[Rfam]
RNA sequence: UAAAAGUGUCGUCAAUGACCAGACAGGCAGGAGAUUUAUACUCUGUACUAGAUGGUCAUUCAACGCCCUGACCUGUAUGAGCAAGUGGGGCAUUUGCCUGGAUUACGAAUACGAGCAGCGAUGUCGAGAGUGCACAGCACGAAGACAUCGACUUUUA
Numbered sequence: 001u002a003a004a005a006g007u008g009u010c011g012u013c014a015a016u017g018a019c020c021a022g023a024c025a026g027g028c029a030g031g032a033g034a035u036u037u038a039u040a041c042u043c044u045g046u047a048c049u050a051g052a053u054g055g056u057c058a059u060u061c062a063a064c065g066c067c068c069u070g071a072c073c074u075g076u077a078u079g080a081g082c083a084a085g086u087g088g089g090g091c092a093u094u095u096g097c098c099u100g101g102a103u104u105a106c107g108a109a110u111a112c113g114a115g116c117a118g119c120g121a122u123g124u125c126g127a128g129a130g131u132g133c134a135c136a137g138c139a140c141g142a143a144g145a146c147a148u149c150g151a152c153u154u155u156u157a
Stems, first nucleotide, its partner, number of pairs: 001157007008067001010065002014060008025049002030043002034039001072115001074113005081106001083104002088099004119150007130140004
RNA: Clostridiales-1 RNA
Organism: Clostridiales bacterium CHKCI001